Record summary
A member of the RNA family "MIR1120/MIR1122 microRNA precursor family" from Triticum aestivum, 87 nucleotides long. The family's consensus secondary structure was predicted with RNAalifold. A reference for the family is Yao et al. (2007), "Cloning and characterization of microRNAs from wheat (Triticum aestivum L.)", Genome Biol. The source organism's lineage runs through Eukaryota, Tracheophyta, commelinids, Pooideae and Triticum. Rfam links the family to the GO terms RISC complex and miRNA-mediated post-transcriptional gene silencing.
RNA sequence: CUACUCCCUCUGUCCCAUAAUGUAAGACGUUUUUUUACUCUACACUAGAGUCAAAAAUCGUCUUACAUUAUGGGACAGAGGGAGUAG
Numbered sequence: 001c002u003a004c005u006c007c008c009u010c011u012g013u014c015c016c017a018u019a020a021u022g023u024a025a026g027a028c029g030u031u032u033u034u035u036u037a038c039u040c041u042a043c044a045c046u047a048g049a050g051u052c053a054a055a056a057a058u059c060g061u062c063u064u065a066c067a068u069u070a071u072g073g074g075a076c077a078g079a080g081g082g083a084g085u086a087g
Stems, first nucleotide, its partner, number of pairs: 003085003007081005013075005019069011031057005037051005
Dot-bracket structure: ..(((.(((((.(((((.(((((((((((.(((((.(((((.....))))).))))).))))))))))).))))).))))).)))..